[Rfam]
About this RNA:
This 89-nucleotide RNA from Lupinus angustifolius belongs to the Rfam family "mir-160 microRNA precursor family". Its family is annotated with RISC complex and miRNA-mediated post-transcriptional gene silencing in the Gene Ontology. NCBI's taxonomy places the organism under Eukaryota, eudicotyledons, rosids, genistoids sensu lato, Lupinus. On this family, see Rhoades et al., Cell 2002: "Prediction of plant microRNA targets".

RNA sequence: GCUUGCCUGGCUCCCUGAAUGCCAUGUAAGAAGCUUUUGUCUAUAGGAUCGACAACCUUUUUAUUUGGCAUUAGGGGAGUCAUGCAGGC
Numbered sequence: 001g002c003u004u005g006c007c008u009g010g011c012u013c014c015c016u017g018a019a020u021g022c023c024a025u026g027u028a029a030g031a032a033g034c035u036u037u038u039g040u041c042u043a044u045a046g047g048a049u050c051g052a053c054a055a056c057c058u059u060u061u062u063a064u065u066u067g068g069c070a071u072u073a074g075g076g077g078a079g080u081c082a083u084g085c086a087g088g089c
Stems, first nucleotide, its partner, number of pairs: 001089006008082007016074001018072007027063003